RNA sequence: UUGGUUUAAAUCAUAGUGGGUCUCACACUUUGGAAAUGGGCUCCACUUAAAGUGGUGGGUCACACAUUGGUUUAAGCCAA
Numbered sequence: 001u002u003g004g005u006u007u008a009a010a011u012c013a014u015a016g017u018g019g020g021u022c023u024c025a026c027a028c029u030u031u032g033g034a035a036a037u038g039g040g041c042u043c044c045a046c047u048u049a050a051a052g053u054g055g056u057g058g059g060u061c062a063c064a065c066a067u068u069g070g071u072u073u074a075a076g077c078c079a080a
Base pairs, nucleotide, nucleotide: 001080002079003078004077005076006075007074008073009072010071011070012069013068016065017064018063023058024057025056026054027053028052029051030050031049032048

Background:
MIR5269 microRNA precursor family: an 80-nucleotide RNA sequence from Medicago truncatula. Rfam links the family to the GO terms RISC complex and miRNA-mediated post-transcriptional gene silencing.